Overview: Small nucleolar RNA SNORD58: a 70-nucleotide sequence from Megalops atlanticus. The literature on the family includes a 2002 paper in Mol Cell Biol by Galardi et al., "Purified box C/D snoRNPs are able to reproduce site-specific 2'-O-methylation of target RNA in vitro". The family is grouped with related families in Rfam's "SNORD58 clan". Rfam classes the family as a C/D-box small nucleolar RNA.
[Rfam]
RNA sequence: GUGCUGUGAUGACAAUCUUAGGACACCUUUGGAGGUCAAGGCCUGUGAAACCAACAUUGCUCUGAGCAUG
Number, nucleotide and partner (000 for none) at each position: 001g069002u068003g067004c066005u000006g000007u000008g000009a000010u000011g000012a000013c000014a000015a000016u000017c000018u000019u000020a000021g000022g000023a000024c000025a000026c000027c000028u000029u000030u000031g000032g000033a000034g000035g000036u000037c000038a000039a000040g000041g000042c000043c000044u000045g000046u000047g000048a000049a000050a000051c000052c000053a000054a000055c000056a000057u000058u000059g000060c000061u000062c000063u000064g000065a000066g004067c003068a002069u001070g000